[Rfam]
RNA sequence: UGACCACCCGGACGGAUCGCGGUUUCGGGUAAAGGCCAUACGGACAGCCGGGUCAACUGCCGA
Number, nucleotide and partner (000 for none) at each position: 001u055002g054003a053004c052005c051006a030007c029008c028009c027010g026011g025012a000013c000014g000015g000016a000017u000018c000019g000020c000021g000022g000023u000024u000025u011026c010027g009028g008029g007030u006031a000032a000033a000034g000035g000036c000037c000038a000039u000040a000041c000042g000043g000044a000045c000046a000047g000048c000049c000050g000051g005052g004053u003054c002055a001056a000057c000058u000059g000060c000061c000062g000063a000
Streptococcus sRNA SpF59 (ldcC RNA): a 63-nucleotide RNA from Catenibacillus scindens. By type it is a small RNA. A search with the family's covariance model found it, with a score of 67 bits. For this family Rfam cites "Control of virulence by small RNAs in Streptococcus pneumoniae" (Mann et al., PLoS Pathog, 2012).